[Rfam]
RNA: S. pyogenes antisense RNA 392987
RNA sequence: AUAAGAAUAAAUCUCUUUCUAGUAAUGUUUCGCAACUCUACUAUAACGGAUUUAUUCCUUUUU
Numbered sequence: 001a002u003a004a005g006a007a008u009a010a011a012u013c014u015c016u017u018u019c020u021a022g023u024a025a026u027g028u029u030u031c032g033c034a035a036c037u038c039u040a041c042u043a044u045a046a047c048g049g050a051u052u053u054a055u056u057c058c059u060u061u062u063u
Stems, first nucleotide, its partner, number of pairs: 003059001005057009015048001020043005027036002